Notes:
This 340-nucleotide sequence from Botryosphaeria dothidea belongs to the Rfam family "Nuclear RNase P". The base pairs follow the family's consensus structure, which is taken from published work. The literature on the family includes a 1999 paper in Nucleic Acids Res by Brown, "The Ribonuclease P Database". It is annotated as a ribozyme.

RNA sequence: CUCGUCAAUGCUGCGUUUCUUUGCUCACAAACAGACACCAGGCCCGCCUGGAUGUCCCACUAUGCAAAUGAGAAAUUCGGAGUAAUCUUCAACUUCACCCACCAUCAUCUACCCGGCGUUCUGGCCGCUGCCCGUGAGGGCCUGGCGUGAACACGCCUGCUCCUGGCAUCAGAAAGCUCAGGACCAGCCGGCGACGCUGCCUUCGGGUGGCGUCCGUGCAGGUAUGUACCCCCAUGGGAGUCCGGGCGAAGAUUGUGUGCAUGCGAAGGCGUGCGACACUUCAGUGCAAUACGCGGCGUACCGUAUCCCGGUAUCAUUCGAUUCCGAUUACUCUGGCGAG
Numbered sequence: 001c002u003c004g005u006c007a008a009u010g011c012u013g014c015g016u017u018u019c020u021u022u023g024c025u026c027a028c029a030a031a032c033a034g035a036c037a038c039c040a041g042g043c044c045c046g047c048c049u050g051g052a053u054g055u056c057c058c059a060c061u062a063u064g065c066a067a068a069u070g071a072g073a074a075a076u077u078c079g080g081a082g083u084a085a086u087c088u089u090c091a092a093c094u095u096c097a098c099c100c101a102c103c104a105u106c107a108u109c110u111a112c113c114c115g116g117c118g119u120u121c122u123g124g125c126c127g128c129u130g131c132c133c134g135u136g137a138g139g140g141c142c143u144g145g146c147g148u149g150a151a152c153a154c155g156c157c158u159g160c161u162c163c164u165g166g167c168a169u170c171a172g173a174a175a176g177c178u179c180a181g182g183a184c185c186a187g188c189c190g191g192c193g194a195c196g197c198u199g200c201c202u203u204c205g206g207g208u209g210g211c212g213u214c215c216g217u218g219c220a221g222g223u224a225u226g227u228a229c230c231c232c233c234a235u236g237g238g239a240g241u242c243c244g245g246g247c248g249a250a251g252a253u254u255g256u257g258u259g260c261a262u263g264c265g266a267a268g269g270c271g272u273g274c275g276a277c278a279c280u281u282c283a284g285u286g287c288a289a290u291a292c293g294c295g296g297c298g299u300a301c302c303g304u305a306u307c308c309c310g311g312u313a314u315c316a317u318u319c320g321a322u323u324c325c326g327a328u329u330a331c332u333c334u335g336g337c338g339a340g
Stems, first nucleotide, its partner, number of pairs: 001340002005336003010297007020068004034056004039051001078326005087251004130141004144157005162246005181233002298314006